[Rfam]
Description:
Shown here is a 97-nucleotide RNA from Cucumis sativus, a member of the family "Small nucleolar RNA snoR31/Z110/Z27". Rfam links the family to the GO terms nucleolus and RNA processing. A search with the family's covariance model found it, with a score of 55 bits. NCBI's taxonomy places the organism under Eukaryota, Streptophytina, Gunneridae, Benincaseae, Cucumis. Rfam describes the family as follows. This family contains several related snoRNAs including R31, Z27 and Z110.
RNA sequence: UUCAUCAAAUGAUGAAAUGUGGAAUAAUCUUAGGACACCUUCCUACACAGUAAAGCCAUGCUGUGGAUGAGAACUACAUUUCCUUUCUGAUGAUGAU
Numbered sequence: 001u002u003c004a005u006c007a008a009a010u011g012a013u014g015a016a017a018u019g020u021g022g023a024a025u026a027a028u029c030u031u032a033g034g035a036c037a038c039c040u041u042c043c044u045a046c047a048c049a050g051u052a053a054a055g056c057c058a059u060g061c062u063g064u065g066g067a068u069g070a071g072a073a074c075u076a077c078a079u080u081u082c083c084u085u086u087c088u089g090a091u092g093a094u095g096a097u
Stems, first nucleotide, its partner, number of pairs: 002096006043050002
Dot-bracket structure: .((((((...................................((....))........................................)))))).